The record is a 72-nucleotide RNA sequence, which matches "tRNA" in Rfam.
RNA sequence: GGCUCGUUGGUCUAGGGGUAUGAUUCUCGCUUAGGGUGCGAGAGGUCCCGGGUUCAAAUCCCGGACGAGCCC
Numbered sequence: 001g002g003c004u005c006g007u008u009g010g011u012c013u014a015g016g017g018g019u020a021u022g023a024u025u026c027u028c029g030c031u032u033a034g035g036g037u038g039c040g041a042g043a044g045g046u047c048c049c050g051g052g053u054u055c056a057a058a059u060c061c062c063g064g065a066c067g068a069g070c071c072c
Stems, first nucleotide, its partner, number of pairs: 001071007010024003026042005048064005